[Rfam]
TPP riboswitch aptamer (THI element): a 99-nucleotide RNA sequence from Lentilactobacillus buchneri. The base pairs follow the family's consensus structure, which is taken from published work. The organism belongs to Lentilactobacillus buchneri subsp. silagei, within Bacteria. Rfam's curators write: Vitamin B(1) in its active form thiamin pyrophosphate (TPP) is an essential coenzyme that is synthesised by coupling of pyrimidine and thiazole moieties in bacteria.
RNA sequence: UAAGAUCACUAGGGGUGCCUUGUGCUGAGAUGGCGACUUGCCAAUCCCUUUGAACCUGAUUUGGUUAAUACCAACGUAGGGAAGUGGAAUAAUGAGUUC
Dot-bracket structure: .....(((((((((.(((.....))......((((...)))))..)))).....((((..((((......))))..))))..)))))............
Numbered sequence: 001u002a003a004g005a006u007c008a009c010u011a012g013g014g015g016u017g018c019c020u021u022g023u024g025c026u027g028a029g030a031u032g033g034c035g036a037c038u039u040g041c042c043a044a045u046c047c048c049u050u051u052g053a054a055c056c057u058g059a060u061u062u063g064g065u066u067a068a069u070a071c072c073a074a075c076g077u078a079g080g081g082a083a084g085u086g087g088a089a090u091a092a093u094g095a096g097u098u099c
Stems, first nucleotide, its partner, number of pairs: 006087005011049004016043001017025002032042004055080004061074004